RNA sequence: GGUUUGUAGGCAGUGUAGUUAGCUGAUUGUACCCCCUGCUCCGCAAUCACUAAUGUCACUGCCAUCAAAAC
Numbered sequence: 001g002g003u004u005u006g007u008a009g010g011c012a013g014u015g016u017a018g019u020u021a022g023c024u025g026a027u028u029g030u031a032c033c034c035c036c037u038g039c040u041c042c043g044c045a046a047u048c049a050c051u052a053a054u055g056u057c058a059c060u061g062c063c064a065u066c067a068a069a070a071c
Stems, first nucleotide, its partner, number of pairs: 003069004009063002012060004018054005024049007
mir-34 microRNA precursor family: a 71-nucleotide sequence from Rhinopomastus cyanomelas. Rfam 15.1 lists 2,256 matches to the family in 820 species. The base pairs follow the family's consensus structure, which was predicted with RNAalifold. The family is grouped with related families in Rfam's "mir-34 clan". Lineage of the source: Eukaryota > Chordata > Craniata > Coraciimorphae > Rhinopomastus. A search with the family's covariance model found it, with a score of 62 bits. Its family is annotated with RISC complex and miRNA-mediated post-transcriptional gene silencing in the Gene Ontology. Human mir-34a was discovered computationally and later experimentally verified. The mature sequence is excised from the 5' arm of the hairpin. For this family Rfam cites "Numerous microRNPs in neuronal cells containing novel microRNAs" (Dostie et al., RNA, 2003).